[Rfam]
RNA sequence: CGGCUGUAGCUAAAUUAAUCCAUCAAAUGGUAGGAAGUUAUAUGGUCGGGUGUUGAAUAUUUUCGAUCAACAUUUUCGCUUACCGAAUUUCUCACAUAU
Dot-bracket structure: ................................(((((((....(((.(((.((((............))))..))).))).....))))))).......
Numbered sequence: 001c002g003g004c005u006g007u008a009g010c011u012a013a014a015u016u017a018a019u020c021c022a023u024c025a026a027a028u029g030g031u032a033g034g035a036a037g038u039u040a041u042a043u044g045g046u047c048g049g050g051u052g053u054u055g056a057a058u059a060u061u062u063u064c065g066a067u068c069a070a071c072a073u074u075u076u077c078g079c080u081u082a083c084c085g086a087a088u089u090u091c092u093c094a095c096a097u098a099u
Stems, first nucleotide, its partner, number of pairs: 033092007044080003048076003052071004
A member of the RNA family "Small nucleolar RNA snoR109" from Zostera marina, 99 nucleotides long. The base pairs follow the family's consensus structure, which was predicted with WAR. Rfam classes the family as an H/ACA-box small nucleolar RNA. It scores 55 bits against the family's covariance model. On this family, see Marker et al., Curr Biol 2002: "Experimental RNomics: identification of 140 candidates for small non-messenger RNAs in the plant Arabidopsis thaliana".